[Rfam]
RNA: Small nucleolar RNA SNORA42/SNORA80 family
RNA sequence: GUAUCGGUUUGGAUUUAUGGCAGGCCCAUCCCCCAGGGCCCCUCAUAGUGCCCCAUGCCAGAGCAAACUGUGGCCCUGAACCACUACCUGGCUUCUGUGCCUGCCUGUAGGCUGCAGGUACUGAGGUGGGUUACACAGUG
Numbered sequence: 001g002u003a004u005c006g007g008u009u010u011g012g013a014u015u016u017a018u019g020g021c022a023g024g025c026c027c028a029u030c031c032c033c034c035a036g037g038g039c040c041c042c043u044c045a046u047a048g049u050g051c052c053c054c055a056u057g058c059c060a061g062a063g064c065a066a067a068c069u070g071u072g073g074c075c076c077u078g079a080a081c082c083a084c085u086a087c088c089u090g091g092c093u094u095c096u097g098u099g100c101c102u103g104c105c106u107g108u109a110g111g112c113u114g115c116a117g118g119u120a121c122u123g124a125g126g127u128g129g130g131u132u133a134c135a136c137a138g139u140g
Base pairs, nucleotide, nucleotide: 001058002057003056004055006052007051008050015048016047017046018045019044020043023040024039025037026036071133072132073131074130075129076128082123083122087118088117089114090113091112092111093110094109